The record is a 117-nucleotide RNA sequence from Acidithiobacillus caldus, which matches "ALIL pseudoknot" in Rfam. A search with the family's covariance model found it, with a score of 95 bits. Taxonomically the source falls in Acidithiobacillus caldus (Bacteria, Pseudomonadati, Acidithiobacillales, Acidithiobacillus). Rfam classes the family as a cis-regulatory element.
RNA sequence: CGCUUUUUUCGUGCAAGCGGAGCUCGGCCGCAAGCUCAAGUCGUAACGGCCUGCAUCGACCAGCACCGAGAAACCUACAGGGUCGAGCCGAUCUGCAAGGUAUUGCAGGUUGCCCCG
Number, nucleotide and partner (000 for none) at each position: 001c000002g000003c000004u000005u000006u000007u000008u000009u000010c000011g000012u000013g000014c000015a000016a000017g031018c030019g029020g028021a000022g000023c000024u000025c000026g000027g000028c020029c019030g018031c017032a000033a000034g000035c000036u000037c000038a000039a000040g000041u000042c000043g000044u000045a000046a000047c000048g000049g000050c000051c000052u000053g000054c000055a000056u000057c000058g000059a000060c000061c000062a000063g000064c000065a000066c000067c000068g000069a000070g000071a000072a000073a000074c000075c000076u000077a000078c117079a000080g115081g114082g113083u000084c000085g000086a000087g000088c000089c112090g111091a000092u109093c108094u107095g106096c105097a104098a103099g000100g000101u000102a000103u098104u097105g096106c095107a094108g093109g092110u000111u090112g089113c082114c081115c080116c000117g078